[Rfam]
RNA sequence: AUAUCUUUCUCGGCCUUUUGGCUAAGAUCAAGUAUAGUAUCUGUUCUUAUCAGUUUAAUAUCUGAUAUGUGGGUUAUAUGCACACAAUGAUAUUAAAUUUAUUUUUAUGGGGGAGGGGCCACCACAAUAGCUUGCUGUUGGGCCCCUUGCAUGUCGUCUAGGCGUUGCACUACUACCUAGGCUGGCGCACCCCAA
Number, nucleotide and partner (000 for none) at each position: 001a000002u000003a000004u000005c000006u000007u000008u027009c026010u025011c000012g023013g022014c021015c020016u000017u000018u000019u000020g015021g014022c013023u012024a000025a010026g009027a008028u000029c000030a000031a000032g000033u000034a000035u000036a000037g000038u000039a000040u000041c000042u000043g000044u000045u000046c000047u000048u067049a066050u065051c064052a063053g062054u000055u000056u000057a000058a000059u000060a000061u000062c053063u052064g051065a050066u049067a048068u000069g085070u084071g083072g000073g081074u080075u000076a000077u000078a000079u000080g074081c073082a000083c071084a070085c069086a000087a000088u000089g000090a000091u000092a000093u000094u000095a000096a000097a000098u000099u000100u000101a000102u000103u000104u000105u000106u000107a000108u000109g000110g000111g000112g000113g148114a147115g146116g145117g144118g143119c142120c141121a000122c000123c000124a000125c000126a000127a138128u137129a136130g135131c000132u000133u000134g000135c130136u129137g128138u127139u000140g000141g120142g119143c118144c117145c116146c115147u114148u113149g000150c000151a000152u187153g186154u185155c184156g183157u000158c180159u179160a178161g177162g176163c000164g000165u000166u000167g000168c000169a000170c000171u000172a000173c000174u000175a000176c162177c161178u160179a159180g158181g000182c000183u156184g155185g154186c153187g152188c000189a000190c000191c000192c000193c000194a000195a000
RNA: U2 spliceosomal RNA